[Rfam]
RNA: Small nucleolar RNA SNORD105
Organism: Otolemur garnettii
RNA sequence: CCCCCGUCUCUUAUGAUGAACCCAUUUGCUUCUGAGCUGCUGUGAUUUUUGGCUUCAAAGUAAACGCGCUGAAGAAGAGUUGGGA
Numbered sequence: 001c002c003c004c005c006g007u008c009u010c011u012u013a014u015g016a017u018g019a020a021c022c023c024a025u026u027u028g029c030u031u032c033u034g035a036g037c038u039g040c041u042g043u044g045a046u047u048u049u050u051g052g053c054u055u056c057a058a059a060g061u062a063a064a065c066g067c068g069c070u071g072a073a074g075a076a077g078a079g080u081u082g083g084g085a
Stems, first nucleotide, its partner, number of pairs: 003084003008079003